Rfam assigns this 104-nucleotide sequence from Chlorocebus sabaeus to the family "Mitochondrial DNA control region secondary structure A". By type it is an antisense RNA.

RNA sequence: GUAUUUUAUGUUGUACAAGCUCUACAGUACAGCUUGAGCACUACCCACAUUAGUUACCACUAUGUAAUUCGUGCAUUACUGCUAGCCAACAUGAAUAAUAUAUA
Numbered sequence: 001g002u003a004u005u006u007u008a009u010g011u012u013g014u015a016c017a018a019g020c021u022c023u024a025c026a027g028u029a030c031a032g033c034u035u036g037a038g039c040a041c042u043a044c045c046c047a048c049a050u051u052a053g054u055u056a057c058c059a060c061u062a063u064g065u066a067a068u069u070c071g072u073g074c075a076u077u078a079c080u081g082c083u084a085g086c087c088a089a090c091a092u093g094a095a096u097a098a099u100a101u102a103u104a
Stems, first nucleotide, its partner, number of pairs: 005095007013086001018080002023037001026034003038057001041053003062076005

Annotation: The family's consensus secondary structure is taken from published work.